[Rfam]
Source information
This 102-nucleotide RNA sequence from Amphiprion percula belongs to the Rfam family "Vault RNA". The family's consensus secondary structure is taken from published work. The organism belongs to Amphiprion, within Eukaryota. The family's RNA type in Rfam is non-coding RNA gene. It scores 61 bits against the family's covariance model.
RNA sequence: GCACUGGUUUAGCUCAGUGGUUCCUUCUCUGCACAAAUCUAGUUGAUUUUGUGGUUCAAAUCCCUCUUCGGGACCAAACCACGGGCGCUGUCCAGUGCUUUU
Numbered sequence: 001g002c003a004c005u006g007g008u009u010u011a012g013c014u015c016a017g018u019g020g021u022u023c024c025u026u027c028u029c030u031g032c033a034c035a036a037a038u039c040u041a042g043u044u045g046a047u048u049u050u051g052u053g054g055u056u057c058a059a060a061u062c063c064c065u066c067u068u069c070g071g072g073a074c075c076a077a078a079c080c081a082c083g084g085g086c087g088c089u090g091u092c093c094a095g096u097g098c099u100u101u102u
Stems, first nucleotide, its partner, number of pairs: 002097006012086004017082004025072003